The record is a 99-nucleotide RNA from Theropithecus gelada, which matches "mir-4477 microRNA precursor family" in Rfam.
[Rfam]
RNA sequence: ACCUCCUCCCGUGAAUCACAAAUGUCCUUAAAAGCAAUCCUUAAAUGCCGUUUGUGGCAUUUAAAUCCUUAAGGACAUUUGUGAUUGAUGGGAGGAGGC
Dot-bracket structure: .(((((((((...((((((((((((((((((....(.............................)..))))))))))))))))))...))))))))).